[Rfam]
RNA: SAM-I/IV (S-adenosyl methionine) riboswitch aptamer
RNA sequence: CCCUCACAUCACGAGUGGCUCGGUUUUCCGGGCUCGGCAACCUGGGGCGAACACCCAAGGUGCCAACCCACCUUUGGUGGGGAUGCGGCUUCCACCUUCCGGUGUCGGCAACAACCAGUUCGAGGA
Numbered sequence: 001c002c003c004u005c006a007c008a009u010c011a012c013g014a015g016u017g018g019c020u021c022g023g024u025u026u027u028c029c030g031g032g033c034u035c036g037g038c039a040a041c042c043u044g045g046g047g048c049g050a051a052c053a054c055c056c057a058a059g060g061u062g063c064c065a066a067c068c069c070a071c072c073u074u075u076g077g078u079g080g081g082g083a084u085g086c087g088g089c090u091u092c093c094a095c096c097u098u099c100c101g102g103u104g105u106c107g108g109c110a111a112c113a114a115c116c117a118g119u120u121c122g123a124g125g126a
Stems, first nucleotide, its partner, number of pairs: 007085004015035001017034007036064003041060003044056003051120001088109003
Dot-bracket structure: ......((((....(.(((((((....))))))))(((..((((((....[..))).))).))).................))))..(((................)))..........]......